The record is a 179-nucleotide RNA from Marinibacterium profundimaris, which matches "Ruegeria cis52 sRNA" in Rfam. It is annotated as a small RNA. Lineage of the source: Bacteria > Pseudomonadati > Rhodobacterales > Paracoccaceae > Marinibacterium.
Nucleotides: 179
Stems, first nucleotide, its partner, number of pairs: 005140002008137001010135003014131002016128001020125002028123004038113001040111001042109001046105001048103001050101003054097001055075008082096005145179001147177001148175005154165004
Number, partner (000 for none) and nucleotide at each position: 001000u002000g003000c004000g005140g006139a007000g008137c009000g010135c011134g012133u013000g014131u015130u016128u017000c018000a019000c020125c021124a022000c023000g024000a025000u026000g027000u028123u029122g030121g031120g032000a033000a034000a035000g036000c037000u038113c039000a040111c041000g042109c043000c044000c045000u046105u047000c048103a049000g050101c051100c052099g053000g054097g055075c056074g057073g058072u059071g060070c061069g062068g063000a064000u065000a066000u067000a068062u069061u070060g071059c072058g073057c074056c075055g076000u077000c078000a079000u080000g081000a082096c083095c084094u085093c086092g087000g088000c089000c090000a091000u092086c093085g094084a095083g096082g097054c098000g099052c100051g101050g102000g103048u104000c105046a106000u107000c108000c109042g110000g111040g112000c113038g114000a115000u116000a117000u118000a119000g120031c121030c122029c123028a124021u125020g126000c127000c128016g129000u130015a131014a132000a133012g134011c135010g136000a137008g138000a139006u140005u141000g142000u143000c144000a145179g146000c147177a148175c149174c150173g151172g152171c153000a154165g155164g156163a157162a158000g159000a160000a161000g162157u163156u164155c165154u166000c167000g168000a169000a170000g171152g172151u173150c174149g175148g176000g177147u178000u179145c
Pairs were carried over by alignment from the consensus structure, which was predicted with RNAfold.